[Rfam]
RNA sequence: CCUCCCGGCGCGCCCGGACCCUUGAAAACAAAGAAAGUUGGGAAAGCCACACCCAACCAAACCCUCCCCGUCACCCCAUCGGGUGACGUGGUGGAUCGGGCGCCGAGCGGCGCGGUACGGUCGCGGCGAAGCACCCCACAAACACGGACGGCCCCCGCCGGGACUGGCAUCCCGAACGAGGGCCUGAUCAUCAAGGAAGCAAGACCCUUCCCC
Numbered sequence: 001c002c003u004c005c006c007g008g009c010g011c012g013c014c015c016g017g018a019c020c021c022u023u024g025a026a027a028a029c030a031a032a033g034a035a036a037g038u039u040g041g042g043a044a045a046g047c048c049a050c051a052c053c054c055a056a057c058c059a060a061a062c063c064c065u066c067c068c069c070g071u072c073a074c075c076c077c078a079u080c081g082g083g084u085g086a087c088g089u090g091g092u093g094g095a096u097c098g099g100g101c102g103c104c105g106a107g108c109g110g111c112g113c114g115g116u117a118c119g120g121u122c123g124c125g126g127c128g129a130a131g132c133a134c135c136c137c138a139c140a141a142a143c144a145c146g147g148a149c150g151g152c153c154c155c156c157g158c159c160g161g162g163a164c165u166g167g168c169a170u171c172c173c174g175a176a177c178g179a180g181g182g183c184c185u186g187a188u189c190a191u192c193a194a195g196g197a198a199g200c201a202a203g204a205c206c207c208u209u210c211c212c213c
Stems, first nucleotide, its partner, number of pairs: 007192002010189001072085005090122002150184005156178002160173004195211005
RNA: Streptomyces sRNA 4677